[Rfam]
RNA sequence: AUCUCCUGGGCGCGUUCCUCCUCCCAUUAGCGCCCUCGAGUGUUCCCCUCUGGAGGUUCGCCUUAACAGGCCACUUCCAUUCAACUUAGCCGGAUCCUUUCGAUCCGGCUUUUUUG
Numbered sequence: 001a002u003c004u005c006c007u008g009g010g011c012g013c014g015u016u017c018c019u020c021c022u023c024c025c026a027u028u029a030g031c032g033c034c035c036u037c038g039a040g041u042g043u044u045c046c047c048c049u050c051u052g053g054a055g056g057u058u059c060g061c062c063u064u065a066a067c068a069g070g071c072c073a074c075u076u077c078c079a080u081u082c083a084a085c086u087u088a089g090c091c092g093g094a095u096c097c098u099u100u101c102g103a104u105c106c107g108g109c110u111u112u113u114u115u116g
Stems, first nucleotide, its partner, number of pairs: 001041001003040003008035002012033004051079007088110009
This 116-nucleotide RNA sequence from Mesorhizobium sp. NBSH29 belongs to the Rfam family "Alphaproteobacterial ar15". On this family, see del Val et al., RNA Biol 2012: "A survey of sRNA families in alpha-proteobacteria". Its family is annotated with protein binding in the Gene Ontology. It scores 41 bits against the family's covariance model. The family's RNA type in Rfam is small RNA.